[Rfam]
RNA sequence: UCGUGCUAGGCGGGGAGGUAGCGGUGCCCUGUACUCGCAAUCCGCUGCAGCGGGGCUGAAUCCCUUCUCGAGGUUUAGUCAACGUGAGGCCUGCCCUAAGUAAGUGGUGUUGACAUUCGGGUCCUACGCAACGGACACUCAUGAACCCUGUCAGGUCCGGAAGGAAGCAGCAGUAAGUGAGCCCAUCCGUGUGCCGUAGGGUUGCCUGGAUCGAGCUAACUGCUUAGGUAACGCUUGGGUUGGCUUUAUCGACAGAAGGUGCACGG
Numbered sequence: 001u002c003g004u005g006c007u008a009g010g011c012g013g014g015g016a017g018g019u020a021g022c023g024g025u026g027c028c029c030u031g032u033a034c035u036c037g038c039a040a041u042c043c044g045c046u047g048c049a050g051c052g053g054g055g056c057u058g059a060a061u062c063c064c065u066u067c068u069c070g071a072g073g074u075u076u077a078g079u080c081a082a083c084g085u086g087a088g089g090c091c092u093g094c095c096c097u098a099a100g101u102a103a104g105u106g107g108u109g110u111u112g113a114c115a116u117u118c119g120g121g122u123c124c125u126a127c128g129c130a131a132c133g134g135a136c137a138c139u140c141a142u143g144a145a146c147c148c149u150g151u152c153a154g155g156u157c158c159g160g161a162a163g164g165a166a167g168c169a170g171c172a173g174u175a176a177g178u179g180a181g182c183c184c185a186u187c188c189g190u191g192u193g194c195c196g197u198a199g200g201g202u203u204g205c206c207u208g209g210a211u212c213g214a215g216c217u218a219a220c221u222g223c224u225u226a227g228g229u230a231a232c233g234c235u236u237g238g239g240u241u242g243g244c245u246u247u248a249u250c251g252a253c254a255g256a257a258g259g260u261g262c263a264c265g266g
Stems, first nucleotide, its partner, number of pairs: 001266006009057003012030004017025001019023001034054005063259006072250003079243005085237004092230002096227006104220002106217003115211008123200006129191002132189004138181005148173004156165003
Dot-bracket structure: ((((((..(((((((.(.(...).).))))...(((((...........)))))))).....((((((...(((....(((((.((((...((..((((((..(((((......((((((((((((((((.((((..(((((.....((((....(((....)))....))))...)))))....))))))...))))))...))))))))...))).)).)))))).))...)))).)))))....)))...)))))).))))))
Bacterial large signal recognition particle RNA: a 266-nucleotide RNA sequence from Bacillus taeanensis. It is annotated as a non-coding RNA gene. From the family's description: The signal recognition particle (SRP) is a universally conserved ribonucleoprotein involved in the co-translational targeting of proteins to membranes. For this family Rfam cites "Kinship in the SRP RNA family" (Rosenblad et al., RNA Biol, 2009). The source organism's lineage runs through Bacteria, Bacillota, Bacilli, Caryophanales and Bacillus. The match comes from Rfam's covariance-model search (226 bits). Rfam links the family to the GO terms SRP-dependent cotranslational protein targeting to membrane, signal sequence recognition and signal recognition particle, plasma membrane targeting. Its Rfam clan is "SRP clan".